This 100-nucleotide RNA sequence from Herbiconiux ginsengi belongs to the Rfam family "Glycine riboswitch aptamer". The source organism's lineage runs through Bacteria, Actinomycetota, Micrococcales, Microbacteriaceae and Herbiconiux. The family is grouped with related families in Rfam's "Glycine riboswitch clan". From the family's description: This family represents the bacterial glycine riboswitch. Glycine riboswitches usually consist of two metabolite-binding aptamers domains with similar structures in tandem.
[Rfam]
RNA sequence: CGAACAGCAGCGGGAGAGUCCGCCCGAGAGCCAUCGGGCCGGCGCCGUAGGAGCAAUUCCUCUCCGGGAAACUCUCAGGCCCACGCACCGCUGCAGUUGG
Numbered sequence: 001c002g003a004a005c006a007g008c009a010g011c012g013g014g015a016g017a018g019u020c021c022g023c024c025c026g027a028g029a030g031c032c033a034u035c036g037g038g039c040c041g042g043c044g045c046c047g048u049a050g051g052a053g054c055a056a057u058u059c060c061u062c063u064c065c066g067g068g069a070a071a072c073u074c075u076c077a078g079g080c081c082c083a084c085g086c087a088c089c090g091c092u093g094c095a096g097u098u099g100g
Stems, first nucleotide, its partner, number of pairs: 007094007020042003044080003047076001051074003057067002